[Rfam]
This 56-nucleotide RNA from Streptomyces alkaliphilus belongs to the Rfam family "msiK RNA".
Pairs were carried over by alignment from the consensus structure, which is taken from published work.
The source organism's lineage runs through Bacteria, Actinomycetota, Actinomycetes, Streptomycetaceae and Streptomyces.
By type it is a cis-regulatory element.

RNA sequence: ACCUCCCACCUUUACUCGGAUCGUCCGGCACGUUCCUGCCGGUGAAGGAGUGCAUC
Numbered sequence: 001a002c003c004u005c006c007c008a009c010c011u012u013u014a015c016u017c018g019g020a021u022c023g024u025c026c027g028g029c030a031c032g033u034u035c036c037u038g039c040c041g042g043u044g045a046a047g048g049a050g051u052g053c054a055u056c
Stems, first nucleotide, its partner, number of pairs: 009048006025042006